The family of this 61-nucleotide RNA sequence from Danio rerio is "mir-723 microRNA precursor family". Pairs were carried over by alignment from the consensus structure, which was predicted with RNAalifold. It is one of the family's seed sequences. Taxonomically the source falls in Danio (Eukaryota, Euteleostomi, Otomorpha, Danioninae).
[Rfam]
Nucleotides: 061
Base pairs, nucleotide, nucleotide: 002058003057004056005055007053008052009051010050013047014046015045016044017043018042021041022039023038024037025036026035027034
Number, partner (000 for none) and nucleotide at each position: 001000g002058a003057c004056a005055g006000u007053u008052u009051u010050a011000a012000a013047u014046g015045a016044u017043g018042u019000u020000a021041c022039u023038u024037u025036u026035u027034u028000u029000c030000a031000a032000a033000u034027g035026g036025a037024g038023a039022a040000a041021g042018a043017c044016a045015u046014c047013a048000a049000u050010u051009a052008a053007a054000u055005c056004u057003g058002u059000g060000c061000u